U5 spliceosomal RNA: a 107-nucleotide RNA from Chlamydomonas eustigma. The source organism's lineage runs through Eukaryota, Chlorophyta, core chlorophytes, Chlamydomonadales and Chlamydomonas. It scores 72 bits against the family's covariance model.
RNA sequence: UGCGACGACCCAACCACUGCGCAUAUUUUUCUUUCGCCUUUUACUAAAGAAAACUGAGGGGUUGGGUCAUACAGUCGCCUUACAUAUUUUUUGAGAGCUAUGUGCUC
Numbered sequence: 001u002g003c004g005a006c007g008a009c010c011c012a013a014c015c016a017c018u019g020c021g022c023a024u025a026u027u028u029u030u031c032u033u034u035c036g037c038c039u040u041u042u043a044c045u046a047a048a049g050a051a052a053a054c055u056g057a058g059g060g061g062u063u064g065g066g067u068c069a070u071a072c073a074g075u076c077g078c079c080u081u082a083c084a085u086a087u088u089u090u091u092u093g094a095g096a097g098c099u100a101u102g103u104g105c106u107c
Stems, first nucleotide, its partner, number of pairs: 003077004008067008017058002027053008102107001